[Rfam]
RNA sequence: AGGCAUCCAACAGGUGCGAUAUGAGAACACAUGUUAAAUGUGCAACAAAUCACAUUCCGCCACGUGUUCUCAGGUCGCCCCUGCAGGGUUUUU
Numbered sequence: 001a002g003g004c005a006u007c008c009a010a011c012a013g014g015u016g017c018g019a020u021a022u023g024a025g026a027a028c029a030c031a032u033g034u035u036a037a038a039u040g041u042g043c044a045a046c047a048a049a050u051c052a053c054a055u056u057c058c059g060c061c062a063c064g065u066g067u068u069c070u071c072a073g074g075u076c077g078c079c080c081c082u083g084c085a086g087g088g089u090u091u092u093u
Base pairs, nucleotide, nucleotide: 007087008086011083012082013081014080016078017077018076019075023071024070025069026068027067028066029065030064032062